[Rfam]
RNA: SAM riboswitch aptamer (S box leader)
Organism: Paenibacillus curdlanolyticus
RNA sequence: UUCUUAUCAAGAGCAGGCGGAGGGACUAGCCCGAUGAAGCCCGGCAACCGGCGUUAAGCACGGUGCUAAUUCUUGCGGAUCAGAUAACAGUUAUCUGAUCUGGGAGAUGAGAG
Numbered sequence: 001u002u003c004u005u006a007u008c009a010a011g012a013g014c015a016g017g018c019g020g021a022g023g024g025a026c027u028a029g030c031c032c033g034a035u036g037a038a039g040c041c042c043g044g045c046a047a048c049c050g051g052c053g054u055u056a057a058g059c060a061c062g063g064u065g066c067u068a069a070u071u072c073u074u075g076c077g078g079a080u081c082a083g084a085u086a087a088c089a090g091u092u093a094u095c096u097g098a099u100c101u102g103g104g105a106g107a108u109g110a111g112a113g
Stems, first nucleotide, its partner, number of pairs: 001113008013042001016041003022032003026075001028073002043067004048063002050059001052058001071105001076102011
Dot-bracket structure: ((((((((....(..(((...(((.[.[[)))......))))((((.(((.(.....))..))))))...(]].](((((((((((.....)))))))))))..)))))))))